The family of this 80-nucleotide RNA from Geotrypetes seraphini is "mir-306 microRNA precursor family". The family has 16 seed sequences and 49 matches in Rfam 15.1.

RNA sequence: CUGCAAAUUGCAAAGGCACAAAGUGCCUAUCAGUACGGCGAGAAAUACUGAUAGGCACUUUGUGCCUUUGCGAUUUGCAG
Numbered sequence: 001c002u003g004c005a006a007a008u009u010g011c012a013a014a015g016g017c018a019c020a021a022a023g024u025g026c027c028u029a030u031c032a033g034u035a036c037g038g039c040g041a042g043a044a045a046u047a048c049u050g051a052u053a054g055g056c057a058c059u060u061u062g063u064g065c066c067u068u069u070g071c072g073a074u075u076u077g078c079a080g
Stems, first nucleotide, its partner, number of pairs: 001080005006074001008073004013068007022059014